Source information:
The family of this 115-nucleotide RNA from Aminivibrio pyruvatiphilus is "Molybdenum/Tungsten riboswitch aptamer (Moco RNA motif)". The organism belongs to Aminivibrio, within Bacteria. A search with the family's covariance model found it, with a score of 60 bits.
RNA sequence: UUCUAUAUUUUCUUCCGAGCCUUUUCUCCUUCGGCGGGGCCAUGGAGGAAGGCCGGCAGGGUACCGCGGGAAACGGCGGCGCCUCCUUUGGGAAAGGAAGACGGUUCAAUGUCCC
Numbered sequence: 001u002u003c004u005a006u007a008u009u010u011u012c013u014u015c016c017g018a019g020c021c022u023u024u025u026c027u028c029c030u031u032c033g034g035c036g037g038g039g040c041c042a043u044g045g046a047g048g049a050a051g052g053c054c055g056g057c058a059g060g061g062u063a064c065c066g067c068g069g070g071a072a073a074c075g076g077c078g079g080c081g082c083c084u085c086c087u088u089u090g091g092g093a094a095a096g097g098a099a100g101a102c103g104g105u106u107c108a109a110u111g112u113c114c115c
Base pairs, nucleotide, nucleotide: 004108011101012100013099014098015097016096019053020052021051022050023049025048026047027046028045029044033041034040035039059084060083061082062081064079065078066077067076069074085092086091